RNA sequence: UCCCGAGGAUUUCCUCGGCAGUUAACUGCCGCCGGUUGCCUUCAAACUUCGGCAGUUAACUGCCGAGGAAAAC
Numbered sequence: 001u002c003c004c005g006a007g008g009a010u011u012u013c014c015u016c017g018g019c020a021g022u023u024a025a026c027u028g029c030c031g032c033c034g035g036u037u038g039c040c041u042u043c044a045a046a047c048u049u050c051g052g053c054a055g056u057u058a059a060c061u062g063c064c065g066a067g068g069a070a071a072a073c
Base pairs, nucleotide, nucleotide: 012069013068015066016065017064018063019062020061021060022059023058024057025056026055027054028053029052030051031050
Dot-bracket structure: ...........((.(((((((((((((((((..................))))))))))))))))).))....
This 73-nucleotide sequence from Medicago truncatula belongs to the Rfam family "MIR2629 microRNA precursor family". NCBI's taxonomy places the organism under Eukaryota, Streptophytina, Magnoliopsida, Gunneridae, Medicago. It scores 70 bits against the family's covariance model.